This 132-nucleotide RNA sequence from Vicugna pacos belongs to the Rfam family "Small nucleolar RNA SNORA72". U72 is a member of the H/ACA class of snoRNAs. The snoRNA gene is located in intron 4 of the ribosomal L30 protein gene in human, mouse and chicken. For this family Rfam cites "The family of box ACA small nucleolar RNAs is defined by an evolutionarily conserved secondary structure and ubiquitous sequence elements essential for RNA accumulation" (Ganot et al., Genes Dev, 1997).
[Rfam]
RNA sequence: AUAAGUGUAUUAACACAUUUCUUUUAAUAUAAAGAAUGGGUAAUGCUAAACAUUCAUUAUAUCAAGACCAUGCAUGUGUCCCCAGACCUAGGUCUUUCCCUGAGUCUGGUUUCAUAAAUGCUGGUGAUAAAC
Number, nucleotide and partner (000 for none) at each position: 001a000002u000003a057004a000005g055006u000007g000008u000009a000010u000011u000012a000013a000014c000015a000016c000017a000018u042019u000020u040021c039022u038023u000024u036025u035026a000027a000028u000029a000030u000031a000032a000033a000034g000035a025036a024037u000038g022039g021040g020041u000042a018043a000044u000045g000046c000047u000048a000049a000050a000051c000052a000053u000054u000055c005056a000057u003058u000059a000060u000061a000062u000063c000064a000065a000066g000067a125068c124069c123070a122071u000072g121073c120074a000075u000076g000077u000078g000079u000080c000081c000082c109083c108084a107085g106086a105087c104088c000089u102090a101091g100092g000093u000094c000095u000096u000097u000098c000099c000100c091101u090102g089103a000104g087105u086106c085107u084108g083109g082110u000111u000112u000113c000114a000115u000116a000117a000118a000119u000120g073121c072122u070123g069124g068125u067126g000127a000128u000129a000130a000131a000132c000